[Rfam]
RNA sequence: GGGCGAGUGGCGGAAUGGCAGACGCGCACGGUUCAGGUCCGUGUGUCCUAGCGGACGUGGGGGUUCAACUCCCCCCUCGCCCA
Numbered sequence: 001g002g003g004c005g006a007g008u009g010g011c012g013g014a015a016u017g018g019c020a021g022a023c024g025c026g027c028a029c030g031g032u033u034c035a036g037g038u039c040c041g042u043g044u045g046u047c048c049u050a051g052c053g054g055a056c057g058u059g060g061g062g063g064u065u066c067a068a069c070u071c072c073c074c075c076c077u078c079g080c081c082c083a
Stems, first nucleotide, its partner, number of pairs: 001082007010025003027043005059075005

The family of this 83-nucleotide sequence from Candidatus Frankia alpina is "tRNA". Transfer RNA (tRNA) molecules are approximately 80 nucleotides in length. Lineage of the source: Bacteria > Bacillati > Actinomycetota > Actinomycetes > Frankia. The base pairs follow the family's consensus structure, which is taken from published work. By type it is a transfer RNA.